[Rfam]
RNA sequence: UUUCGGUUGCGGGAUUUUGGGGGCGAGAUGAGUUUCAUUAAUAUCCAACUGGCCCGCAAAGUCCCGCUUCUGGCA
Numbered sequence: 001u002u003u004c005g006g007u008u009g010c011g012g013g014a015u016u017u018u019g020g021g022g023g024c025g026a027g028a029u030g031a032g033u034u035u036c037a038u039u040a041a042u043a044u045c046c047a048a049c050u051g052g053c054c055c056g057c058a059a060a061g062u063c064c065c066g067c068u069u070c071u072g073g074c075a
Stems, first nucleotide, its partner, number of pairs: 003073004010066004015061005021055004026050002029047002
RNA: mir-193 microRNA precursor family
Organism: Albula goreensis